[Rfam]
RNA sequence: CUUUUUGCAGGUGCAGCAUCUUCAAGAUUCACAUAUAUUUAUAUAUGUAGAGUUUCAUGGUUAUAUGGACUCUAUUAAUUAUUUGACGUGAGAAUCUUGAUGAUGCUGCAGCAGCAAUGAA
Numbered sequence: 001c002u003u004u005u006u007g008c009a010g011g012u013g014c015a016g017c018a019u020c021u022u023c024a025a026g027a028u029u030c031a032c033a034u035a036u037a038u039u040u041a042u043a044u045a046u047g048u049a050g051a052g053u054u055u056c057a058u059g060g061u062u063a064u065a066u067g068g069a070c071u072c073u074a075u076u077a078a079u080u081a082u083u084u085g086a087c088g089u090g091a092g093a094a095u096c097u098u099g100a101u102g103a104u105g106c107u108g109c110a111g112c113a114g115c116a117a118u119g120a121a
Base pairs, nucleotide, nucleotide: 010112012110013109014108015107016106017105018104019103020102022100023099024098025097026096027095028094029093030092032090033089

mir-172 microRNA precursor family: a 121-nucleotide RNA from Capsicum annuum. Rfam links the family to the GO terms miRNA-mediated post-transcriptional gene silencing and RISC complex. The family has 11 seed sequences and 2,076 matches in Rfam 15.1. The literature on the family includes a 2004 paper in Mol Cell by Jones-Rhoades and Bartel, "Computational Identification of Plant MicroRNAs and Their Targets, Including a Stress-Induced miRNA". The source organism's lineage runs through Eukaryota, Streptophyta, Euphyllophyta, Magnoliopsida and Capsicum.